Shown here is a 151-nucleotide RNA from Cannabis sativa, a member of the family "Small nucleolar RNA snoR2/U65". Taxonomically the source falls in Cannabis (Eukaryota, Streptophytina, Pentapetalae, Rosales). The family's RNA type in Rfam is H/ACA-box small nucleolar RNA. On this family, see Shaw et al., J Cell Sci 1998: "Localization and processing from a polycistronic precursor of novel snoRNAs in maize". Clan: SNORA65 clan.

RNA sequence: GGAUCGAUGCCACGUCUACGGUAGCUCUCUAAGAGCUUUGACCGGCGAUGCUAUGAUUGGUCCAAUAACAAUUCUCUGUUUCGCAUUUUGAUAGGAAUCUGUAGACCUUAUUUUUGAUUGGUCUAUUGAGCCGUUUUGUGCGAUUACAUUU
Numbered sequence: 001g002g003a004u005c006g007a008u009g010c011c012a013c014g015u016c017u018a019c020g021g022u023a024g025c026u027c028u029c030u031a032a033g034a035g036c037u038u039u040g041a042c043c044g045g046c047g048a049u050g051c052u053a054u055g056a057u058u059g060g061u062c063c064a065a066u067a068a069c070a071a072u073u074c075u076c077u078g079u080u081u082c083g084c085a086u087u088u089u090g091a092u093a094g095g096a097a098u099c100u101g102u103a104g105a106c107c108u109u110a111u112u113u114u115u116g117a118u119u120g121g122u123c124u125a126u127u128g129a130g131c132c133g134u135u136u137u138g139u140g141c142g143a144u145u146a147c148a149u150u151u
Base pairs, nucleotide, nucleotide: 002062003061004060005059006058007057008056009054013050014049015048016047020043021042022041024036025035026034081143082142083141084140085139094132095131099128101126103124104123105122106121107120